[Rfam]
RNA sequence: GCAAGGAAGAAACGAGCCCAAAGAGAGCUCCCUUCCUUCGGCGUUUCGGGGAGGAAACGCCCACCUAGAUCGAAUGAUCGAGAAAUAGCCGGACCCGUCGCGAUUAUCCCCCGCGGCGGGUUUGGUGUAUCUGGC
Dot-bracket structure: (.(((((((....((((.(.....).)))).))))))))((((((((......))))))))...(((((((((....))))......(((((((((((((((.........)))))))))))))))...))))).